[Rfam]
Notes:
Rfam assigns this 206-nucleotide RNA from Methylomusa anaerophila to the family "T-box leader".
RNA sequence: UGAAACGCUUUGAUGAAGAACAGUAAACAGGGGAAGGGUUCAGAGAGCCAGUGGAUGGUGUGAAUUGGCGCCUAACUUGUUGAAUCCGCUUCGGAGCAGACAGGGAAAUAACUUGUUCCGGUUUGAUACCGUUAUCAUCGGUGAGGUCAUAUUAUCAUAUGACAAAAUAAGGUGGCACCACGUGAGAACCUACUCCCGUCCUUGGC
Number, nucleotide and partner (000 for none) at each position: 001u000002g000003a000004a000005a000006c000007g097008c096009u000010u000011u000012g000013a000014u000015g092016a091017a090018g089019a000020a000021c000022a000023g000024u000025a000026a081027a080028c079029a078030g077031g076032g000033g000034a000035a000036g072037g071038g000039u000040u000041c000042a000043g000044a000045g000046a000047g069048c068049c067050a066051g065052u064053g000054g000055a000056u000057g000058g000059u000060g000061u000062g000063a000064a052065u051066u050067g049068g048069c047070g000071c037072c036073u000074a000075a000076c031077u030078u029079g028080u027081u026082g000083a000084a000085u000086c000087c000088g000089c018090u017091u016092c015093g000094g000095a000096g008097c007098a000099g117100a116101c115102a114103g113104g112105g000106a000107a000108a000109u000110a000111a000112c104113u103114u102115g101116u100117u099118c000119c131120g130121g129122u000123u000124u000125g000126a000127u000128a000129c121130c120131g119132u000133u000134a000135u000136c000137a000138u000139c000140g000141g000142u000143g000144a000145g000146g163147u162148c161149a160150u159151a158152u157153u000154a000155u000156c000157a152158u151159a150160u149161g148162a147163c146164a000165a000166a000167a000168u000169a203170a202171g201172g200173u000174g000175g000176c000177a000178c000179c000180a199181c198182g197183u000184g195185a194186g193187a000188a000189c000190c000191u000192a000193c186194u185195c184196c000197c182198g181199u180200c172201c171202u170203u169204g000205g000206c000
Rfam classes the family as a cis-regulatory leader.